[Rfam]
Nucleotides: 100
Base pairs, nucleotide, nucleotide: 006088007087008086009085011049012048013047014046016043017035018034019033020032021031022030023029055079056078057077058076060073061072062071063070
Number, partner (000 for none) and nucleotide at each position: 001000c002000c003000g004000c005000a006088c007087g008086g009085c010000c011049u012048g013047g014046g015000g016043u017035g018034c019033c020032g021031u022030g023029c024000a025000u026000c027000a028000u029023g030022c031021g032020c033019g034018g035017c036000u037000g038000a039000g040000a041000u042000c043016a044000c045000a046014c047013c048012c049011a050000u051000c052000g053000a054000a055079c056078c057077u058076g059000u060073c061072u062071g063070g064000g065000u066000c067000a068000u069000a070063c071062c072061a073060g074000c075000g076058u077057a078056g079055g080000g081000a082000g083000a084000u085009g086008c087007c088006g089000a090000u091000g092000a093000g094000c095000g096000a097000g098000a099000g100000c
This 100-nucleotide RNA sequence from Xanthobacter dioxanivorans belongs to the Rfam family "TPP riboswitch aptamer (THI element)". Its family is annotated with thiamine pyrophosphate binding in the Gene Ontology.